This 215-nucleotide sequence belongs to the Rfam family "RT-16 RNA". It is one of the family's seed sequences.

[Rfam]
RNA sequence: GCACCAGUUAUGUAAGUUUAAGGACUUGUAUAGAGUGUGCUUGAACUACAUGCUUGACCAUAGAAGAAAAUGCAGAUUAAUGCUGCAUUUUAUGACAUAAAAUACAGCAGCGAUAGUUAGUAGUUAUGAUAGCCUUCGGGAAGCCAGAGCAAAUACUAAAGCUGCAGUGCGCAGGUCAAGUUAUCUUGGUCUGUUUGGUGGUCAGGCUACCAGUG
Numbered sequence: 001g002c003a004c005c006a007g008u009u010a011u012g013u014a015a016g017u018u019u020a021a022g023g024a025c026u027u028g029u030a031u032a033g034a035g036u037g038u039g040c041u042u043g044a045a046c047u048a049c050a051u052g053c054u055u056g057a058c059c060a061u062a063g064a065a066g067a068a069a070a071u072g073c074a075g076a077u078u079a080a081u082g083c084u085g086c087a088u089u090u091u092a093u094g095a096c097a098u099a100a101a102a103u104a105c106a107g108c109a110g111c112g113a114u115a116g117u118u119a120g121u122a123g124u125u126a127u128g129a130u131a132g133c134c135u136u137c138g139g140g141a142a143g144c145c146a147g148a149g150c151a152a153a154u155a156c157u158a159a160a161g162c163u164g165c166a167g168u169g170c171g172c173a174g175g176u177c178a179a180g181u182u183a184u185c186u187u188g189g190u191c192u193g194u195u196u197g198g199u200g201g202u203c204a205g206g207c208u209a210c211c212a213g214u215g
Base pairs, nucleotide, nucleotide: 001040002039003038004037008033009032010031011030012029013028014027015026016025017024052207053206054205055204056203057202058201059200060199061198072177078171107165108164109163110162111161114158115157116156117155123150124149